[Rfam]
Nucleotides: 126
Base pairs, nucleotide, nucleotide: 007026008025009024010023011022012021049079060077061076063074
Number, partner (000 for none) and nucleotide at each position: 001000a002000g003000u004000g005000g006000g007026g008025a009024c010023u011022g012021c013000a014000a015000a016000u017000a018000u019000g020000c021012g022011u023010g024009g025008u026007c027000u028000c029000c030000g031000a032000c033000a034000u035000u036000c037000a038000u039000c040000a041000u042000u043000c044000a045000g046000g047000c048000a049079u050000a051000u052000u053000g054000c055000u056000u057000a058000c059000u060077g061076g062000a063074g064000a065000a066000a067000c068000a069000g070000a071000u072000g073000g074063c075000a076061u077060u078000g079049a080000c081000c082000g083000c084000u085000g086000a087000g088000a089000a090000a091000a092000a093000g094000g095000c096000c097000g098000a099000g100000a101000u102000c103000g104000u105000c106000a107000a108000g109000g110000a111000a112000u113000u114000c115000g116000g117000c118000c119000g120000u121000g122000g123000c124000g125000a126000a